[Rfam]
RNA sequence: ACAAAUGAGGCACUUGGAACAACAAUGUGCCCAAUUCGCGGUCAAAGUCUUGGGAGGAUAGGAUCUCAGGCGCGCUCUGUCGCAGCCCCCGGGAAACUGGGAAAUGGAUCACGCGAUACCUGUGCAACAAGGCCUAACGGCCUUGUUUUUUUUU
Numbered sequence: 001a002c003a004a005a006u007g008a009g010g011c012a013c014u015u016g017g018a019a020c021a022a023c024a025a026u027g028u029g030c031c032c033a034a035u036u037c038g039c040g041g042u043c044a045a046a047g048u049c050u051u052g053g054g055a056g057g058a059u060a061g062g063a064u065c066u067c068a069g070g071c072g073c074g075c076u077c078u079g080u081c082g083c084a085g086c087c088c089c090c091g092g093g094a095a096a097c098u099g100g101g102a103a104a105u106g107g108a109u110c111a112c113g114c115g116a117u118a119c120c121u122g123u124g125c126a127a128c129a130a131g132g133c134c135u136a137a138c139g140g141c142c143u144u145g146u147u148u149u150u151u152u153u154u
Base pairs, nucleotide, nucleotide: 003154004153005152011029012028013027015025037115038114039113040112047059048058049057050056062110063109064108065107066106069087070086071085072083073082074081089100090099091098126147127146128145129144130143131142132141133140
RNA: Alphaproteobacterial sRNA ar9
Organism: Hoeflea marina